[Rfam]
RNA sequence: GGACACCCCCCUUUACAUCGGAUCGUCCGGCACGUUCCUGCCGGUGAAGGAGAGCAGA
Numbered sequence: 001g002g003a004c005a006c007c008c009c010c011c012u013u014u015a016c017a018u019c020g021g022a023u024c025g026u027c028c029g030g031c032a033c034g035u036u037c038c039u040g041c042c043g044g045u046g047a048a049g050g051a052g053a054g055c056a057g058a
Stems, first nucleotide, its partner, number of pairs: 010050006027044006
Dot-bracket structure: .........((((((...........((((((......))))))))))))........
About this RNA: Rfam assigns this 58-nucleotide RNA from Streptacidiphilus jiangxiensis to the family "msiK RNA". A search with the family's covariance model found it, with a score of 56 bits. It is annotated as a cis-regulatory element. Pairs were carried over by alignment from the consensus structure, which is taken from published work. The organism belongs to Streptacidiphilus, within Bacteria. The family has 120 seed sequences and 1,374 matches in Rfam 15.1.